[Rfam]
RNA sequence: AGCGGUCUGCGCCUCGCGACAGGAAUUCAAUUCCCCGGGGCCUUAUCGAUCCUCUAGGGAGCUGUCCCUGGCCUUGCCCGUGGGCUUGGCCACACGGCGCCCACCUACUUUGUAGGUUCCCGGGAUCGGUCAUUCCAUCGGUUGUCGUGGAUCGCUG
Numbered sequence: 001a002g003c004g005g006u007c008u009g010c011g012c013c014u015c016g017c018g019a020c021a022g023g024a025a026u027u028c029a030a031u032u033c034c035c036c037g038g039g040g041c042c043u044u045a046u047c048g049a050u051c052c053u054c055u056a057g058g059g060a061g062c063u064g065u066c067c068c069u070g071g072c073c074u075u076g077c078c079c080g081u082g083g084g085c086u087u088g089g090c091c092a093c094a095c096g097g098c099g100c101c102c103a104c105c106u107a108c109u110u111u112g113u114a115g116g117u118u119c120c121c122g123g124g125a126u127c128g129g130u131c132a133u134u135c136c137a138u139c140g141g142u143u144g145u146c147g148u149g150g151a152u153c154g155c156u157g
Base pairs, nucleotide, nucleotide: 002155003154004153005152006151007150008149009148010147011146012144015141017140018139019138032125033124034123035122037120038119039118040117041116042115057102058101059100061098062097063096064095065094070091071090072089073088076085077084078083
Dot-bracket structure: .(((((((((((..(.(((............((((.((((((..............(((.(((((....((((..(((....)))..))))..))))).)))............)))))).))))............))))..).))))))))))..
The family of this 157-nucleotide sequence from Chelativorans sp. BNC1 is "6S / SsrS RNA".
The sequence is in the family's curated seed alignment.
By type it is a non-coding RNA gene.